This 66-nucleotide RNA sequence from Indolivaga capnocytophagoides belongs to the Rfam family "Bacteroidetes FopS (family of paralogous sRNAs)". The family's RNA type in Rfam is small RNA. The base pairs follow the family's consensus structure, which is taken from published work. A reference for the family is Ruttiger et al. (2025), "The global RNA-binding protein RbpB is a regulator of polysaccharide utilization in Bacteroides thetaiotaomicron", Nat Commun. The RNA-binding protein RbpB and BTncRNA_FopS sRNA are involved in the post-transcription regulation of polysaccharide utilisation loci (PUL). It scores 64 bits against the family's covariance model. The source organism's lineage runs through Bacteria, Pseudomonadati, Bacteroidia, Bacteroidales and Indolivaga.

RNA sequence: AUAUUUUUCAUGGUAUUAGAUUUAAGGUUAUGAAGAUGGUUGUCGUGAUGACAACCUUUUUUAUUC
Numbered sequence: 001a002u003a004u005u006u007u008u009c010a011u012g013g014u015a016u017u018a019g020a021u022u023u024a025a026g027g028u029u030a031u032g033a034a035g036a037u038g039g040u041u042g043u044c045g046u047g048a049u050g051a052c053a054a055c056c057u058u059u060u061u062u063a064u065u066c
Stems, first nucleotide, its partner, number of pairs: 038056007